[Rfam]
Source information:
Shown here is a 373-nucleotide RNA from Thalassobaculum fulvum, a member of the family "Alphaproteobacteria transfer-messenger RNA". Bacterial tmRNA, also known as 10Sa RNA or SsrA, is named for its dual tRNA and mRNA-like properties. Its role is to liberate the mRNA from a stalled ribosome. To accomplish this part of the tmRNA is used as a reading frame that ends in a translation stop signal. The literature on the family includes a 1996 paper in RNA by Williams and Bartel, "Phylogenetic analysis of tmRNA secondary structure". The base pairs follow the family's consensus structure, which is taken from published work. NCBI's taxonomy places the organism under Bacteria, Pseudomonadati, Pseudomonadota, Thalassobaculaceae, Thalassobaculum. A search with the family's covariance model found it, with a score of 258 bits. The family's RNA type in Rfam is non-coding RNA gene.
RNA sequence: CCCCUUUCAUCCGCCACCCGAACGCCCUAUAUGUACGAGCGUCGGCGACGGUCGACUAUGGCGAUAAACGGGCGACGGAAUAAGCGUAGCGGACCCGGGGGCAGUACCCGGCGCCUCCACCAAAUUCCUCCGGCCGGUCCAGGCGGACACGGGCGGGGCUGAAGGGGGCGAAACAGGAUCGACGCGCGUGGUAAAGGCCGUCUUUUCGCUCGGUAUGGUACCGCCGUUAUCGGGCUACUAGAUAGUUGCGAACGACAACUAUGCUGGGGAGCUCCGCGCCGCUGCCUAAGCGGUAAGGAACCCCGAUCAAUCCGUUGCGGUUAGCGUCGUAACGUGGGGCUCGCGGGCCGCCUAGCAACAGAAGGCCCGCACU
Numbered sequence: 001c002c003c004c005u006u007u008c009a010u011c012c013g014c015c016a017c018c019c020g021a022a023c024g025c026c027c028u029a030u031a032u033g034u035a036c037g038a039g040c041g042u043c044g045g046c047g048a049c050g051g052u053c054g055a056c057u058a059u060g061g062c063g064a065u066a067a068a069c070g071g072g073c074g075a076c077g078g079a080a081u082a083a084g085c086g087u088a089g090c091g092g093a094c095c096c097g098g099g100g101g102c103a104g105u106a107c108c109c110g111g112c113g114c115c116u117c118c119a120c121c122a123a124a125u126u127c128c129u130c131c132g133g134c135c136g137g138u139c140c141a142g143g144c145g146g147a148c149a150c151g152g153g154c155g156g157g158g159c160u161g162a163a164g165g166g167g168g169c170g171a172a173a174c175a176g177g178a179u180c181g182a183c184g185c186g187c188g189u190g191g192u193a194a195a196g197g198c199c200g201u202c203u204u205u206u207c208g209c210u211c212g213g214u215a216u217g218g219u220a221c222c223g224c225c226g227u228u229a230u231c232g233g234g235c236u237a238c239u240a241g242a243u244a245g246u247u248g249c250g251a252a253c254g255a256c257a258a259c260u261a262u263g264c265u266g267g268g269g270a271g272c273u274c275c276g277c278g279c280c281g282c283u284g285c286c287u288a289a290g291c292g293g294u295a296a297g298g299a300a301c302c303c304c305g306a307u308c309a310a311u312c313c314g315u316u317g318c319g320g321u322u323a324g325c326g327u328c329g330u331a332a333c334g335u336g337g338g339g340c341u342c343g344c345g346g347g348c349c350g351c352c353u354a355g356c357a358a359c360a361g362a363a364g365g366c367c368c369g370c371a372c373u
Base pairs, nucleotide, nucleotide: 041056042055043054044053045052060210061209062208063207064206070203071202072201073200074199076197085188086187087186089185090184091183095111096110097109098108099107112170113169114168115167116166117165118164211226212225213224214223216237217236218235221233222232337353338352339351340350343370344369345368346367347366348365